[Rfam]
Nucleotides: 107
Base pairs, nucleotide, nucleotide: 001107002106003105004104005103006102007101008100013041015040016039017038021031022030023029027083028082042077043076044075045074047073048072049070050069051068052067081099086096087095088094
Number, partner (000 for none) and nucleotide at each position: 001107u002106u003105c004104u005103u006102a007101u008100u009000a010000a011000g012000a013041g014000u015040g016039g017038u018000g019000g020000a021031g022030g023029g024000a025000c026000u027083g028082g029023c030022c031021c032000u033000a034000u035000g036000a037000a038017a039016c040015c041013c042077g043076g044075c045074a046000a047073c048072c049070u050069a051068c052067a053000a054000u055000u056000a057000u058000g059000u060000a061000u062000u063000u064000a065000u066000u067052u068051g069050u070049g071000u072048g073047g074045u075044g076043c077042u078000a079000a080000a081099u082028c083027c084000u085000a086096c087095a088094g089000u090000u091000a092000a093000u094088c095087u096086g097000a098000a099081a100008a101007a102006u103005a104004a105003g106002a107001a